Source information: Shown here is a 92-nucleotide RNA from Roseinatronobacter bogoriensis, a member of the family "Glycine riboswitch aptamer". It scores 58 bits against the family's covariance model. Gene Ontology term of the family: glycine biosynthetic process. NCBI's taxonomy places the organism under Bacteria, Pseudomonadota, Alphaproteobacteria, Paracoccaceae, Roseinatronobacter bogoriensis.
RNA sequence: CCCAAGGACACGGGAGACACUGACGCGACAGCAUCAGGGCCGAAGGAGCAACCGCCCCGGUAAACUCUCAGGCAAAAGGACCGGUCCGGGCA
Numbered sequence: 001c002c003c004a005a006g007g008a009c010a011c012g013g014g015a016g017a018c019a020c021u022g023a024c025g026c027g028a029c030a031g032c033a034u035c036a037g038g039g040c041c042g043a044a045g046g047a048g049c050a051a052c053c054g055c056c057c058c059g060g061u062a063a064a065c066u067c068u069c070a071g072g073c074a075a076a077a078g079g080a081c082c083g084g085u086c087c088g089g090g091c092a
Stems, first nucleotide, its partner, number of pairs: 006087004011083003020037004039073003042069002046067003052060002